RNA sequence: UGGCUGUGAUGACAAUAAGAUAACUUCUUCAUACCUUAAUUUCAGUUAAGGACCAAAUCUGAUGACUUUAUUUGUGCGUGUCUGAGCCGG
Numbered sequence: 001u002g003g004c005u006g007u008g009a010u011g012a013c014a015a016u017a018a019g020a021u022a023a024c025u026u027c028u029u030c031a032u033a034c035c036u037u038a039a040u041u042u043c044a045g046u047u048a049a050g051g052a053c054c055a056a057a058u059c060u061g062a063u064g065a066c067u068u069u070a071u072u073u074g075u076g077c078g079u080g081u082c083u084g085a086g087c088c089g090g
Stems, first nucleotide, its partner, number of pairs: 001089004

small nucleolar RNA snoR126: a 90-nucleotide RNA sequence from Aegilops tauschii. The family has 4 seed sequences and 423 matches in Rfam 15.1. Gene Ontology terms of the family: RNA processing and nucleolus. The source organism's lineage runs through Eukaryota, Magnoliopsida, Poaceae, Aegilops and Aegilops tauschii. On this family, see Chen and Wu, Nucleic Acids Res 2009: "Mining small RNA sequencing data: a new approach to identify small nucleolar RNAs in Arabidopsis". Rfam classes the family as a C/D-box small nucleolar RNA.